[Rfam]
RNA sequence: AACCUUGCACAGUGGCAGUAUCAUAGCCAAUGAGAUUUAUCUGAGGCACACUUAUUGCUAAUUGAAAACUUUUCCCAAUACCCUGCUGUGAUGACUUGCAAUAUAGUCAGCAUUGGCAAUUUUUGACAGUCUCUGCAGAGA
Numbered sequence: 001a002a003c004c005u006u007g008c009a010c011a012g013u014g015g016c017a018g019u020a021u022c023a024u025a026g027c028c029a030a031u032g033a034g035a036u037u038u039a040u041c042u043g044a045g046g047c048a049c050a051c052u053u054a055u056u057g058c059u060a061a062u063u064g065a066a067a068a069c070u071u072u073u074c075c076c077a078a079u080a081c082c083c084u085g086c087u088g089u090g091a092u093g094a095c096u097u098g099c100a101a102u103a104u105a106g107u108c109a110g111c112a113u114u115g116g117c118a119a120u121u122u123u124u125g126a127c128a129g130u131c132u133c134u135g136c137a138g139a140g141a
Stems, first nucleotide, its partner, number of pairs: 020052001024048001026047003034042001085117003088113003092109005130141004
RNA: U4 spliceosomal RNA